Record summary: The family of this 85-nucleotide RNA sequence from Anaerohalosphaera lusitana is "Group II catalytic intron D1-D4-1". About the family: Group II introns are found in rRNA, tRNA and mRNA of organelles in fungi, plants and protists, and also in mRNA in bacteria. Gene Ontology term of the family: Group II intron splicing. Rfam 15.1 lists 2,508 matches to the family in 1,144 species. The base pairs follow the family's consensus structure. It scores 66 bits against the family's covariance model. NCBI's taxonomy places the organism under Bacteria, Pseudomonadati, Planctomycetota, Phycisphaerae, Anaerohalosphaera.

RNA sequence: UAAGUGUCGCCAAGAGGCGAUGUUACGGACAUGCAGAAGUCAGCAGAGGGCAUAGUAGGCCUGCAGUUCGACCAGGCCGAAGGCC
Numbered sequence: 001u002a003a004g005u006g007u008c009g010c011c012a013a014g015a016g017g018c019g020a021u022g023u024u025a026c027g028g029a030c031a032u033g034c035a036g037a038a039g040u041c042a043g044c045a046g047a048g049g050g051c052a053u054a055g056u057a058g059g060c061c062u063g064c065a066g067u068u069c070g071a072c073c074a075g076g077c078c079g080a081a082g083g084c085c
Base pairs, nucleotide, nucleotide: 001027004023005022006021007020008019009018010017011016040047041046049085050084051083058078059077060076061075062074063073